[Rfam]
RNA: TPP riboswitch aptamer (THI element)
RNA sequence: GUCUGUUCCUCGGGGUGCUAUUCUGCCGGCAGGCAGGGUGGCUGAGAAAAUACCCGCAGAACCUGAUCAGGGUAAUGCCUGCGCAGGGAAGGUGAUCUCCUCUAUU
Dot-bracket structure: .....(.(((((((.(((((((((((......)))))))))).......)..)))).....((((..((((......))))..))))..))).)............